[Rfam]
RNA sequence: UUCUUAUCCAGAGUGGUGGAGGGACAGGCCCUUUGAUACCCAGCAACCAUUAAAUCAAUGAUCGAUUGAUUUAAACGGUGCCAAUUCCUGCAAGGAUCGUUAACAAUGAUCCUUGGAAGAUGAGAG
Numbered sequence: 001u002u003c004u005u006a007u008c009c010a011g012a013g014u015g016g017u018g019g020a021g022g023g024a025c026a027g028g029c030c031c032u033u034u035g036a037u038a039c040c041c042a043g044c045a046a047c048c049a050u051u052a053a054a055u056c057a058a059u060g061a062u063c064g065a066u067u068g069a070u071u072u073a074a075a076c077g078g079u080g081c082c083a084a085u086u087c088c089u090g091c092a093a094g095g096a097u098c099g100u101u102a103a104c105a106a107u108g109a110u111c112c113u114u115g116g117a118a119g120a121u122g123a124g125a126g
Stems, first nucleotide, its partner, number of pairs: 001126008013041001015040003021031003025090004043081003047078002050074009086118001091115010

The family of this 126-nucleotide sequence from Salipaludibacillus neizhouensis is "SAM riboswitch aptamer (S box leader)".
The match comes from Rfam's covariance-model search (81 bits).
NCBI's taxonomy places the organism under Bacteria, Bacillota, Bacilli, Caryophanales, Salipaludibacillus.